[Rfam]
RNA sequence: UUGCAAGUUCAAGGCCAUAGCACAAGUACUCAUGGCACCACCUGUCAGAUUCCAAUGAAUCUGCAAGUUCUGCU
Numbered sequence: 001u002u003g004c005a006a007g008u009u010c011a012a013g014g015c016c017a018u019a020g021c022a023c024a025a026g027u028a029c030u031c032a033u034g035g036c037a038c039c040a041c042c043u044g045u046c047a048g049a050u051u052c053c054a055a056u057g058a059a060u061c062u063g064c065a066a067g068u069u070c071u072g073c074u
Base pairs, nucleotide, nucleotide: 013042014041019074020073021072022071024069025068026038027037046063047062048061049060050059051058052057

About this RNA:
The record is a 74-nucleotide sequence from Crocodylus porosus, which matches "Mammalian CPEB3 ribozyme" in Rfam. Rfam links the family to the GO term RNA nuclease activity.